[Rfam]
RNA sequence: AAAAAAAGUAUAGGCUGCCUUCAUAUAGGUCCGAUAAUAUGGUUCGGAUGUUUCUACUAAGUUACCACAGUAAUAACUUAUCUAUGAUGGCGGGUGCUGUUAUG
Numbered sequence: 001a002a003a004a005a006a007a008g009u010a011u012a013g014g015c016u017g018c019c020u021u022c023a024u025a026u027a028g029g030u031c032c033g034a035u036a037a038u039a040u041g042g043u044u045c046g047g048a049u050g051u052u053u054c055u056a057c058u059a060a061g062u063u064a065c066c067a068c069a070g071u072a073a074u075a076a077c078u079u080a081u082c083u084a085u086g087a088u089g090g091c092g093g094g095u096g097c098u099g100u101u102a103u104g
Stems, first nucleotide, its partner, number of pairs: 018090002021087005029049006058080007
Dot-bracket structure: .................((.(((((...((((((.........))))))........(((((((.........)))))))..))))).))..............
Rfam assigns this 104-nucleotide sequence from Ureibacillus endophyticus to the family "Purine riboswitch aptamer". About the family: Riboswitches are metabolite binding domains within certain messenger RNAs that serve as precision sensors for their corresponding targets. The family's consensus secondary structure is taken from published work. Taxonomically the source falls in Ureibacillus (Bacteria, Bacillati, Caryophanales, Caryophanaceae).